RT-2 RNA: a 224-nucleotide RNA.
Rfam classes the family as a small RNA.
RNA sequence: GACCAUCAGACAAAGUAACUCUUUGAGUGAAAUCAGUAUACACACAGAAGGAGCGCAAAACCUUCCUUAAUUGGUAAAUAUGAACCUUGAUGCGGUUGGCCGGACGCUUCUUGCAUGGAUCGAUACAGGCGUUAAGUCGAUUUUACAUGGCCAUUACCCUUUGCAGAAAAACAUCACGCCAUGAAUAAAUACUGUACGAGGUGACAAAUUAUGACAAGUCAGGA
Numbered sequence: 001g002a003c004c005a006u007c008a009g010a011c012a013a014a015g016u017a018a019c020u021c022u023u024u025g026a027g028u029g030a031a032a033u034c035a036g037u038a039u040a041c042a043c044a045c046a047g048a049a050g051g052a053g054c055g056c057a058a059a060a061c062c063u064u065c066c067u068u069a070a071u072u073g074g075u076a077a078a079u080a081u082g083a084a085c086c087u088u089g090a091u092g093c094g095g096u097u098g099g100c101c102g103g104a105c106g107c108u109u110c111u112u113g114c115a116u117g118g119a120u121c122g123a124u125a126c127a128g129g130c131g132u133u134a135a136g137u138c139g140a141u142u143u144u145a146c147a148u149g150g151c152c153a154u155u156a157c158c159c160u161u162u163g164c165a166g167a168a169a170a171a172c173a174u175c176a177c178g179c180c181a182u183g184a185a186u187a188a189a190u191a192c193u194g195u196a197c198g199a200g201g202u203g204a205c206a207a208a209u210u211a212u213g214a215c216a217a218g219u220c221a222g223g224a
Stems, first nucleotide, its partner, number of pairs: 005039002019027002065074002084202006091196001092159001094158003097153005106114002117143007163195004
Dot-bracket structure: ....((............((.....))..........)).........................((......)).........((((((.((.((((((((....((.....))..(((((((.............))))))).....)))))..))))...((((.........................)))))))))))......................